The family of this 153-nucleotide RNA sequence from Polaribacter porphyrae is "6S-Flavo RNA". A search with the family's covariance model found it, with a score of 86 bits. By type it is a small RNA. Pairs were carried over by alignment from the consensus structure, which is taken from published work.

RNA sequence: ACUCAACACUAUUCUAUUAUGAAGGAUGAGUCUUAACUACUAAAGCAUGCCACUAGUGCUGAACCUUAUACUGAAUUUAUUUCAGUAUUAUUUCAGUAUCUUGGGUGGAUCCUUGAACAGUUAGUUAAUCCUAUAUAUGUCAUUAUGGAGUUU
Number, nucleotide and partner (000 for none) at each position: 001a000002c000003u000004c000005a000006a000007c000008a000009c000010u000011a000012u000013u000014c000015u000016a000017u000018u000019a000020u000021g000022a000023a132024g131025g130026a129027u128028g000029a000030g000031u000032c000033u000034u123035a122036a121037c120038u119039a000040c000041u000042a000043a114044a113045g112046c000047a000048u000049g000050c108051c107052a106053c105054u000055a000056g000057u000058g000059c000060u000061g000062a000063a000064c000065c000066u000067u000068a000069u000070a000071c000072u000073g000074a000075a000076u000077u000078u000079a000080u000081u000082u000083c000084a000085g000086u000087a000088u000089u000090a000091u000092u000093u000094c000095a000096g000097u000098a000099u000100c000101u000102u000103g000104g000105g053106u052107g051108g050109a000110u000111c000112c045113u044114u043115g000116a000117a000118c000119a038120g037121u036122u035123a034124g000125u000126u000127a000128a027129u026130c025131c024132u023133a000134u000135a000136u000137a000138u000139g000140u000141c000142a000143u000144u000145a000146u000147g000148g000149a000150g000151u000152u000153u000